Shown here is a 97-nucleotide part of an RNA from Halodesulfurarchaeum formicicum, a member of the family "Archaeal large subunit ribosomal RNA". Lineage of the source: Archaea > Methanobacteriati > Methanobacteriota > Halobacteriaceae > Halodesulfurarchaeum. Its family is annotated with structural constituent of ribosome and ribosome in the Gene Ontology. Its Rfam clan is "LSU clan". On this family, see Cannone et al., BMC Bioinformatics 2002: "The comparative RNA web (CRW) site: an online database of comparative sequence and structure information for ribosomal, intron, and other RNAs".
[Rfam]
RNA sequence: GACUGGGCACAAAAGGCCUCGUCGGGAACGAGCUGGACGAGAGUCCACAGUAGGACCAACGAGGAGCCGGUGUCGAGUCGUGCGUUUUGAAAAACGA
Numbered sequence: 001g002a003c004u005g006g007g008c009a010c011a012a013a014a015g016g017c018c019u020c021g022u023c024g025g026g027a028a029c030g031a032g033c034u035g036g037a038c039g040a041g042a043g044u045c046c047a048c049a050g051u052a053g054g055a056c057c058a059a060c061g062a063g064g065a066g067c068c069g070g071u072g073u074c075g076a077g078u079c080g081u082g083c084g085u086u087u088u089g090a091a092a093a094a095c096g097a
Stems, first nucleotide, its partner, number of pairs: 001079004006074005015068002019062004024057002029053001034047005083096003